[Rfam]
RNA: Purine riboswitch aptamer
RNA sequence: UAGUUAUAAAAUAUUUAAACCCAUAUAUUUCCAUAAUUUGGUUGGAAGUUUCUACGAGUCACCGUAAAUGGCUUACUAUGGGGUUAAUUAAUUAUAAU
Numbered sequence: 001u002a003g004u005u006a007u008a009a010a011a012u013a014u015u016u017a018a019a020c021c022c023a024u025a026u027a028u029u030u031c032c033a034u035a036a037u038u039u040g041g042u043u044g045g046a047a048g049u050u051u052c053u054a055c056g057a058g059u060c061a062c063c064g065u066a067a068a069u070g071g072c073u074u075a076c077u078a079u080g081g082g083g084u085u086a087a088u089u090a091a092u093u094a095u096a097a098u
Stems, first nucleotide, its partner, number of pairs: 018084001020082006029047005056074006
Dot-bracket structure: .................(.((((((...(((((.........)))))........((((((.......))))))..)))))).)..............